[Rfam]
RNA: permuted transfer-messenger RNA
Organism: Alphaproteobacteria bacterium
RNA sequence: GACGCUAGUACGUGGCUGCGGAAUAAGCGUUCGUGGACCCCGGGGCAGUACCGGGCAGCUCCACCACUUAAGGGCUUUUGACUAUCAAGAUAUCUUAGGCGGCGGGGCUGAAACAGGAUCGACACACGUGGUAAAGGCUUCUCGCGGCGUUCGGCAAUCCGCCGUUACCGGAUAUUUUUGAUAGUUGCAAACGACAACUCUCAGUUCGUAGCCGCUAACGAUAACCUCGUUGGUGAUGUUCGCAUCGCUGCUUAA
Numbered sequence: 001g002a003c004g005c006u007a008g009u010a011c012g013u014g015g016c017u018g019c020g021g022a023a024u025a026a027g028c029g030u031u032c033g034u035g036g037a038c039c040c041c042g043g044g045g046c047a048g049u050a051c052c053g054g055g056c057a058g059c060u061c062c063a064c065c066a067c068u069u070a071a072g073g074g075c076u077u078u079u080g081a082c083u084a085u086c087a088a089g090a091u092a093u094c095u096u097a098g099g100c101g102g103c104g105g106g107g108c109u110g111a112a113a114c115a116g117g118a119u120c121g122a123c124a125c126a127c128g129u130g131g132u133a134a135a136g137g138c139u140u141c142u143c144g145c146g147g148c149g150u151u152c153g154g155c156a157a158u159c160c161g162c163c164g165u166u167a168c169c170g171g172a173u174a175u176u177u178u179u180g181a182u183a184g185u186u187g188c189a190a191a192c193g194a195c196a197a198c199u200c201u202c203a204g205u206u207c208g209u210a211g212c213c214g215c216u217a218a219c220g221a222u223a224a225c226c227u228c229g230u231u232g233g234u235g236a237u238g239u240u241c242g243c244a245u246c247g248c249u250g251c252u253u254a255a
Stems, first nucleotide, its partner, number of pairs: 001151005015141001018138002028128003033125003039055005056110007152164004